[Rfam]
RNA sequence: UGGAGGACUGAGAAGGUUGAGCAGCCGGAGUGCUGCUAUAACUGGUUAUAGCCUCCUAAAGUAACUCUUACCUCUCAAUUCAGUGGCUCUGUCAUAUACGCAGAGCUGAUGUGUAGUGUGUUUGUGAACAAAAC
Numbered sequence: 001u002g003g004a005g006g007a008c009u010g011a012g013a014a015g016g017u018u019g020a021g022c023a024g025c026c027g028g029a030g031u032g033c034u035g036c037u038a039u040a041a042c043u044g045g046u047u048a049u050a051g052c053c054u055c056c057u058a059a060a061g062u063a064a065c066u067c068u069u070a071c072c073u074c075u076c077a078a079u080u081c082a083g084u085g086g087c088u089c090u091g092u093c094a095u096a097u098a099c100g101c102a103g104a105g106c107u108g109a110u111g112u113g114u115a116g117u118g119u120g121u122u123u124g125u126g127a128a129c130a131a132a133a134c
Base pairs, nucleotide, nucleotide: 002056003055004054005053006052015043016042017041018040020037021036022035023034024033025032074126076124077122078121081118082117093113094112095111096110097109099108100107
Shown here is a 134-nucleotide RNA from Gymnodraco acuticeps, a member of the family "Small nucleolar RNA SNORA47". It scores 52 bits against the family's covariance model. The literature on the family includes a 2001 paper in EMBO J by Huttenhofer et al., "RNomics: an experimental approach that identifies 201 candidates for novel, small, non-messenger RNAs in mouse". The organism belongs to Gymnodraco, within Eukaryota.